[Rfam]
RNA sequence: UGGCGUUCGCGCAACUGGCGAUGAGGUCGGGCUUGUCUGGUCCGGCCAAGGUGGGUCACCACCGGGGAGCGCGAACAAUGGGGACCACAGCGGUGCAAAGCCGCCAGCGGCCCUCGUUGUCCGUGCCGUUCGCCUGGGCCGCCACU
Numbered sequence: 001u002g003g004c005g006u007u008c009g010c011g012c013a014a015c016u017g018g019c020g021a022u023g024a025g026g027u028c029g030g031g032c033u034u035g036u037c038u039g040g041u042c043c044g045g046c047c048a049a050g051g052u053g054g055g056u057c058a059c060c061a062c063c064g065g066g067g068a069g070c071g072c073g074a075a076c077a078a079u080g081g082g083g084a085c086c087a088c089a090g091c092g093g094u095g096c097a098a099a100g101c102c103g104c105c106a107g108c109g110g111c112c113c114u115c116g117u118u119g120u121c122c123g124u125g126c127c128g129u130u131c132g133c134c135u136g137g138g139c140c141g142c143c144a145c146u
Stems, first nucleotide, its partner, number of pairs: 005076008015066002017134005051062004125139003
Rfam assigns this 146-nucleotide RNA sequence from Roseateles depolymerans to the family "ZMP/ZTP riboswitch aptamer (pfl RNA motif)". The organism belongs to Roseateles, within Bacteria. The family's consensus secondary structure is taken from published work.